[Rfam]
Source information
The family of this 153-nucleotide RNA from Cronobacter sakazakii is "sok antitoxin (CssrC)". On this family, see Kawano et al., Mol Microbiol 2007: "An antisense RNA controls synthesis of an SOS-induced toxin evolved from an antitoxin". Rfam describes the family as follows. Also identified in Shigella as CssrC. Its family is annotated with mRNA binding in the Gene Ontology. The source organism's lineage runs through Bacteria, Pseudomonadota, Gammaproteobacteria, Enterobacterales and Cronobacter sakazakii.
RNA sequence: GGGUGCUUAAGGCUUUCUGUCUUAAGCAAACGUGAGGGACAGAAAGAAGAAAGCCCCGGGCAAUAUUUCUAUUAACCCGAGGCUAUCCCUCAACUCCAGCAAGUUGAGAUUAGCCUCUUACUCUUCAGAAUGCAAGGAGUAAAAGGCAUGAAG
Numbered sequence: 001g002g003g004u005g006c007u008u009a010a011g012g013c014u015u016u017c018u019g020u021c022u023u024a025a026g027c028a029a030a031c032g033u034g035a036g037g038g039a040c041a042g043a044a045a046g047a048a049g050a051a052a053g054c055c056c057c058g059g060g061c062a063a064u065a066u067u068u069c070u071a072u073u074a075a076c077c078c079g080a081g082g083c084u085a086u087c088c089c090u091c092a093a094c095u096c097c098a099g100c101a102a103g104u105u106g107a108g109a110u111u112a113g114c115c116u117c118u119u120a121c122u123c124u125u126c127a128g129a130a131u132g133c134a135a136g137g138a139g140u141a142a143a144a145g146g147c148a149u150g151a152a153g
Base pairs, nucleotide, nucleotide: 001057002056003055005054006053007052008051013046014045015044016043017042018041019040020039021038022037023036026033027032058078059077060076062073063072064071065070079117080116081115082114083113089108090107091106092105093104094103121145122144125141